[Rfam]
Rfam assigns this 112-nucleotide sequence from Arthrobacter alpinus to the family "Group II catalytic intron D1-D4-2". The base pairs follow the family's consensus structure. Its family is annotated with Group II intron splicing in the Gene Ontology. The match comes from Rfam's covariance-model search (72 bits). From the family's description: Group II introns are found in rRNA, tRNA and mRNA of organelles in fungi, plants and protists, and also in mRNA in bacteria.

RNA sequence: GAAGGUAUGGCCCUUCGGAGCCGCCCUGCGCUGGGUGGUUUCAAACCGCCUCGUGCUGCGUUGGUUGAAGACCGUCGUGGUGAGCGAUCGAUGGCAAAUUCGGCAAGAAGGU
Numbered sequence: 001g002a003a004g005g006u007a008u009g010g011c012c013c014u015u016c017g018g019a020g021c022c023g024c025c026c027u028g029c030g031c032u033g034g035g036u037g038g039u040u041u042c043a044a045a046c047c048g049c050c051u052c053g054u055g056c057u058g059c060g061u062u063g064g065u066u067g068a069a070g071a072c073c074g075u076c077g078u079g080g081u082g083a084g085c086g087a088u089c090g091a092u093g094g095c096a097a098a099u100u101c102g103g104c105a106a107g108a109a110g111g112u
Stems, first nucleotide, its partner, number of pairs: 001016005017042006024035003049094002051091003054087001055081002058078003062074004103112002